The family of this 65-nucleotide RNA from Pseudonocardiaceae bacterium YIM PH 21723 is "Actino-pnp RNA".
RNA sequence: GCCGGUCCUCGGUAGUGGUCGCCGUAGCAAGAAAUCUUGCUCGGUGGCUUCGAUCGAAGACCGGC
Numbered sequence: 001g002c003c004g005g006u007c008c009u010c011g012g013u014a015g016u017g018g019u020c021g022c023c024g025u026a027g028c029a030a031g032a033a034a035u036c037u038u039g040c041u042c043g044g045u046g047g048c049u050u051c052g053a054u055c056g057a058a059g060a061c062c063g064g065c
Base pairs, nucleotide, nucleotide: 001065002064003063004062005061006060007059009057010056011055012054013053017049018048019047020046021045022044023043024042027040028039029038030037
The family's RNA type in Rfam is cis-regulatory element. Pairs were carried over by alignment from the consensus structure, which is taken from published work. A search with the family's covariance model found it, with a score of 64 bits. The organism belongs to Pseudonocardiaceae, within Bacteria.